[Rfam]
RNA: tRNA
Organism: Actinophytocola oryzae
RNA sequence: GGCGGGUUGCCCGAGCGGUCAAAGGGAGCAGACUGUAAAUCUGUCGCGCAAGCUACGAAGGUUCGAACCCUUCACCCGCCA
Dot-bracket structure: (((((((..(((...........))).(((((.......)))))............(((((.......)))))))))))).